Shown here is a 202-nucleotide sequence from Xenopus tropicalis, a member of the family "Small nucleolar RNA SNORA74". Rfam 15.1 lists 1,348 matches to the family in 628 species. U19 belongs to the H/ACA class of snoRNAs. snoRNAs bind a number of proteins (including dyskerin, Gar1p and Nop10p in the case of the H/ACA class) to form snoRNP complexes. This class are thought to guide the sites of modification of uridines to pseudouridines by forming direct base pairing interactions with substrate RNAs. Targets may include ribosomal and spliceosomal RNAs but the exact functions of many snoRNAs, including U19, are not confirmed.
RNA sequence: GCCAGAAUUAGUCAGCUGUCCAGUGUAUUUCAAUGACUGUGAUAGCGUUACACUUCUGGAAGAAAAAAACACUGCUUUUCUUGCUAAGUGUCAAUGUCAUUGUUCUAGUGACCUGUCACUGGCUUUGGGCAGUAUUAGGCUUCUUAGAGAGUGUGCCCAAAAUUAGGUUUGGCUCUUGGGUGCUAGUCUGGAAGCACACACU
Dot-bracket structure: .((((((.(.((..((((((((((...........)))).))))))...))).)))))).........(.(((((((.....(((.((((.(.....((((.....))))....).)))))))...))))))).)...((((((........(((.((((.(...........).)))).)))......)))))).......